[Rfam]
This 139-nucleotide sequence from Chinchilla lanigera belongs to the Rfam family "Small nucleolar RNA U109". It is annotated as an H/ACA-box small nucleolar RNA. The family's consensus secondary structure was predicted with WAR. Rfam 15.1 lists 1,405 matches to the family in 622 species. NCBI's taxonomy places the organism under Eukaryota, Teleostomi, Mammalia, Rodentia, Chinchilla.

RNA sequence: UGGCACGUCCAACAGACAUCCUGCUUCUCUUUAAAGAGCAUGGAUUUAUCCACACCAUGCAACAUGAAUGAAAUGAGAAGUUUGCAGGGCUGCCAACCUUUUCGUUGAGGUUUUGAGGUAGUAUAUUUCUUCUACAAUA
Numbered sequence: 001u002g003g004c005a006c007g008u009c010c011a012a013c014a015g016a017c018a019u020c021c022u023g024c025u026u027c028u029c030u031u032u033a034a035a036g037a038g039c040a041u042g043g044a045u046u047u048a049u050c051c052a053c054a055c056c057a058u059g060c061a062a063c064a065u066g067a068a069u070g071a072a073a074u075g076a077g078a079a080g081u082u083u084g085c086a087g088g089g090c091u092g093c094c095a096a097c098c099u100u101u102u103c104g105u106u107g108a109g110g111u112u113u114u115g116a117g118g119u120a121g122u123a124u125a126u127u128u129c130u131u132c133u134a135c136a137a138u139a
Stems, first nucleotide, its partner, number of pairs: 003060003007056001017042003021038002077132004089119002093115001095112006